This 354-nucleotide part of an RNA from Candidatus Nitrosacidicoccus tergens belongs to the Rfam family "Bacterial small subunit ribosomal RNA". The match comes from Rfam's covariance-model search (1609 bits). A reference for the family is Yusupov et al. (2001), "Crystal structure of the ribosome at 5.5 A resolution", Science.
[Rfam]
RNA sequence: GGCGUAAAGGGCACGCAGGCGGUUGAGUAAGUUAGAUGUGAAAGCCCUGGGCUUAACCUAGGAAUGGCAUUUAAUACUGCUUGGCUAGAGUAUGAUAGAGGGAAGCGGAAUUUCCGGUGUAGCGGUGAAAUGCGUAGAUAUCGGAAGGAACAUCAGUGGCGAAGGCGGCUUCCUGGGUCAUUACUGACGCUGAGGUGCGAAAGCGUGGGGAGCAAACAGGAUUAGAUACCCUGGUAGUCCACGCCCUAAACGAUGAGAACUAGAUGUUGGGAGGGUAAACCUCUCAGUAUCACAGUUAACGCGUUAAGUUCUCCGCCUGGGGAGUACGGCCGCAAGGUUGAAACUCAAAUGAAU
Numbered sequence: 001g002g003c004g005u006a007a008a009g010g011g012c013a014c015g016c017a018g019g020c021g022g023u024u025g026a027g028u029a030a031g032u033u034a035g036a037u038g039u040g041a042a043a044g045c046c047c048u049g050g051g052c053u054u055a056a057c058c059u060a061g062g063a064a065u066g067g068c069a070u071u072u073a074a075u076a077c078u079g080c081u082u083g084g085c086u087a088g089a090g091u092a093u094g095a096u097a098g099a100g101g102g103a104a105g106c107g108g109a110a111u112u113u114c115c116g117g118u119g120u121a122g123c124g125g126u127g128a129a130a131u132g133c134g135u136a137g138a139u140a141u142c143g144g145a146a147g148g149a150a151c152a153u154c155a156g157u158g159g160c161g162a163a164g165g166c167g168g169c170u171u172c173c174u175g176g177g178u179c180a181u182u183a184c185u186g187a188c189g190c191u192g193a194g195g196u197g198c199g200a201a202a203g204c205g206u207g208g209g210g211a212g213c214a215a216a217c218a219g220g221a222u223u224a225g226a227u228a229c230c231c232u233g234g235u236a237g238u239c240c241a242c243g244c245c246c247u248a249a250a251c252g253a254u255g256a257g258a259a260c261u262a263g264a265u266g267u268u269g270g271g272a273g274g275g276u277a278a279a280c281c282u283c284u285c286a287g288u289a290u291c292a293c294a295g296u297u298a299a300c301g302c303g304u305u306a307a308g309u310u311c312u313c314c315g316c317c318u319g320g321g322g323a324g325u326a327c328g329g330c331c332g333c334a335a336g337g338u339u340g341a342a343a344c345u346c347a348a349a350u351g352a353a354u
Base pairs, nucleotide, nucleotide: 001317002316003315009314011198012197013196014195016192018191019190020189022085023084024083025082026081027080028079030078031077032074033073034072035071036070037069038068039067046062047061048060049059050058051057089185090184091183092181093180094179095178096177100174101173102172103171104170105169106168107151111147112146113145114144115143116142117141118140122133123132124131159166160165203244204243205242206241207240208239212238213237217233218232219231220230255313256312257311258310259309260308263291264290265289266288267287268286269285270284271283272282273281274280295302296301319346320345321344328339329338330337331336